[Rfam]
RNA sequence: GUGAGCAUAGAAGAGGAAUAAGAGGGCCUAAGAGCAGUGGGGAUGGAAGCAUGGAGGAAGGCCUAGAUUUCAUUUUAAGCCUUCCUGAUGCCUCCCGUUCCUAUCGUUCUUAGGAGCUUAUUCCUCUUCCUUUUAGCG
Numbered sequence: 001g002u003g004a005g006c007a008u009a010g011a012a013g014a015g016g017a018a019u020a021a022g023a024g025g026g027c028c029u030a031a032g033a034g035c036a037g038u039g040g041g042g043a044u045g046g047a048a049g050c051a052u053g054g055a056g057g058a059a060g061g062c063c064u065a066g067a068u069u070u071c072a073u074u075u076u077a078a079g080c081c082u083u084c085c086u087g088a089u090g091c092c093u094c095c096c097g098u099u100c101c102u103a104u105c106g107u108u109c110u111u112a113g114g115a116g117c118u119u120a121u122u123c124c125u126c127u128u129c130c131u132u133u134u135a136g137c138g
Stems, first nucleotide, its partner, number of pairs: 010129005016123003022119003027114009038103009048093001050090003054086001056085007
A member of the RNA family "MIR2118 microRNA precursor family" from Setaria viridis, 138 nucleotides long. The family has 7 seed sequences and 2,377 matches in Rfam 15.1. It scores 106 bits against the family's covariance model. On this family, see Xue et al., Nucleic Acids Res 2009: "Characterization and expression profiles of miRNAs in rice seeds". Taxonomically the source falls in Setaria (Eukaryota, Streptophyta, Panicoideae, Cenchrinae). The base pairs follow the family's consensus structure, which was predicted with RNAalifold.